[Rfam]
A member of the RNA family "Small nucleolar RNA SNORD17" from Vicugna pacos, 235 nucleotides long.
RNA sequence: GUGAAAUGAUGAUUCAGUUUAUCCAUUCGCUGAGUGCGCUGCCCUGACCUCCUUCCAAGCCUCGGCUCCUGUUCUGGGAUCUCUGGGCUCUGUAGCCCCCAAGUGCCCCGCAGUCCACGGUGUUCUACUGUGGACAGCGUGUGUGUUGGGGACUACCGGUAAGAGUGGUUGGUGUCAGCAGGGAUGGGUCCCUGUGGGCCUCAUCUCGCCAAGAUGAGUGGUGGAAUCUGAUCAC
Numbered sequence: 001g002u003g004a005a006a007u008g009a010u011g012a013u014u015c016a017g018u019u020u021a022u023c024c025a026u027u028c029g030c031u032g033a034g035u036g037c038g039c040u041g042c043c044c045u046g047a048c049c050u051c052c053u054u055c056c057a058a059g060c061c062u063c064g065g066c067u068c069c070u071g072u073u074c075u076g077g078g079a080u081c082u083c084u085g086g087g088c089u090c091u092g093u094a095g096c097c098c099c100c101a102a103g104u105g106c107c108c109c110g111c112a113g114u115c116c117a118c119g120g121u122g123u124u125c126u127a128c129u130g131u132g133g134a135c136a137g138c139g140u141g142u143g144u145g146u147u148g149g150g151g152a153c154u155a156c157c158g159g160u161a162a163g164a165g166u167g168g169u170u171g172g173u174g175u176c177a178g179c180a181g182g183g184a185u186g187g188g189u190c191c192c193u194g195u196g197g198g199c200c201u202c203a204u205c206u207c208g209c210c211a212a213g214a215u216g217a218g219u220g221g222u223g224g225a226a227u228c229u230g231a232u233c234a235c
Base pairs, nucleotide, nucleotide: 010234011233012232013231014230017227018226019225020224023221024220025219026218027217028216029215030213031212034209035208038179039178040177041176042174044172045171046170047169048168049167050165052163053162054161055159056158058089059088060087061086062085064083065081067079068078069077070076092156093155094154095153097151098150105144106143107141110138111137113135114134115133116132117131118130119129120128121127122126181207182206183205184204185203186202187201188200190198191197
Dot-bracket structure: .........(((((..((((..(((((((((..((..(((((.(((((((.(((((.(((((.((.((((.....)))).).).)))))..((((.((......(((..((.((((((((((...)))))))))).))..).)).....)).)))).)).))).).)))))).).)))).((((((((.((.....)).))))))))))..)).)))))))..))))..))))).
Description
NCBI's taxonomy places the organism under Eukaryota, Mammalia, Theria, Boreoeutheria, Vicugna. About the family: The snoRNA HBI-43 belongs to the C/D family of snoRNAs, guiding 2'O-ribose methylation at position U3797 of the 28S rRNA. Pseudouridylation in position U3797 is predicted to be guided by the H/ACA snoRNA ACA48. Its family is annotated with nucleolus and RNA processing in the Gene Ontology.